Shown here is an 88-nucleotide RNA sequence from Camellia sinensis, a member of the family "Small nucleolar RNA SNORD34". By type it is a C/D-box small nucleolar RNA. Rfam describes the family as follows. snoRNA U34 is found in intron 5 of the ribosomal protein L13a gene in humans. The match comes from Rfam's covariance-model search (44 bits). Clan: SNORD34 clan. The literature on the family includes a 2002 paper in Mol Cell Biol by Galardi et al., "Purified box C/D snoRNPs are able to reproduce site-specific 2'-O-methylation of target RNA in vitro". The family has 14 seed sequences and 1,319 matches in Rfam 15.1.
[Rfam]
RNA sequence: UGAGGCCUAUGAUGAUUUAAAGAUUUGCCUACAUUGUCUGAUUUGCAUAAAAUGAUGGAGGAAUCUGAAAACUGUUACUGAGACCACA
Numbered sequence: 001u002g003a004g005g006c007c008u009a010u011g012a013u014g015a016u017u018u019a020a021a022g023a024u025u026u027g028c029c030u031a032c033a034u035u036g037u038c039u040g041a042u043u044u045g046c047a048u049a050a051a052a053u054g055a056u057g058g059a060g061g062a063a064u065c066u067g068a069a070a071a072c073u074g075u076u077a078c079u080g081a082g083a084c085c086a087c088a
Stems, first nucleotide, its partner, number of pairs: 001088002004085002007082001